[Rfam]
L17 ribosomal protein downstream element: a 65-nucleotide RNA from Holzapfeliella floricola. By type it is a cis-regulatory element. Pairs were carried over by alignment from the consensus structure, which is taken from published work. The source organism's lineage runs through Bacteria, Bacillati, Bacilli, Lactobacillaceae and Holzapfeliella floricola.
RNA sequence: AUAGCGUAAUGAUGAUGGAAUUAAAUUCCAAGUCUAGCUUAGAUAAUAAUUAAAAUUUUAUUAUC
Dot-bracket structure: ..(((.....(((...(((((...)))))..)))..)))..((((((((........))))))))